[Rfam]
RNA sequence: AGCUUUGCACAGUGGCAGUAUCGUAGCCAAGGAGGUUUAUCUGAAGCACGAUUAUUGCUAAUUGAAAACUUUUCCCAAUACCGCGUCAUGACGACUUGAAAUAUAAUUGGCAUUGGCAACUUUUGACAGUCUACGGGGAC
Numbered sequence: 001a002g003c004u005u006u007g008c009a010c011a012g013u014g015g016c017a018g019u020a021u022c023g024u025a026g027c028c029a030a031g032g033a034g035g036u037u038u039a040u041c042u043g044a045a046g047c048a049c050g051a052u053u054a055u056u057g058c059u060a061a062u063u064g065a066a067a068a069c070u071u072u073u074c075c076c077a078a079u080a081c082c083g084c085g086u087c088a089u090g091a092c093g094a095c096u097u098g099a100a101a102u103a104u105a106a107u108u109g110g111c112a113u114u115g116g117c118a119a120c121u122u123u124u125g126a127c128a129g130u131c132u133a134c135g136g137g138g139a140c
Base pairs, nucleotide, nucleotide: 020052021051022050023049024048026047027046034042035041085117086116087115088113089112090111092109093108094107096105129140130139131138132137
This 140-nucleotide sequence from Sapajus apella belongs to the Rfam family "U4 spliceosomal RNA". U4 small nuclear RNA (U4 snRNA) is a component of the major U2-dependent spliceosome. Taxonomically the source falls in Sapajus (Eukaryota, Chordata, Boreoeutheria, Platyrrhini). The family's consensus secondary structure is taken from published work.